[Rfam]
Notes:
Rfam assigns this 78-nucleotide RNA from Fukomys damarensis to the family "Mammalian CPEB3 ribozyme". The base pairs follow the family's consensus structure, which is taken from published work. The match comes from Rfam's covariance-model search (93 bits).

RNA sequence: GGAGGAUAACAGGGGGCCACAGCACAAGCGUUCACGUCGCAGCCCCUGUCGGAUUCUGAGGAAUCUGCGAAUUCUGCA
Numbered sequence: 001g002g003a004g005g006a007u008a009a010c011a012g013g014g015g016g017c018c019a020c021a022g023c024a025c026a027a028g029c030g031u032u033c034a035c036g037u038c039g040c041a042g043c044c045c046c047u048g049u050c051g052g053a054u055u056c057u058g059a060g061g062a063a064u065c066u067g068c069g070a071a072u073u074c075u076g077c078a
Stems, first nucleotide, its partner, number of pairs: 013046005022077003026073002028040003050067007
The organism belongs to Fukomys, within Eukaryota.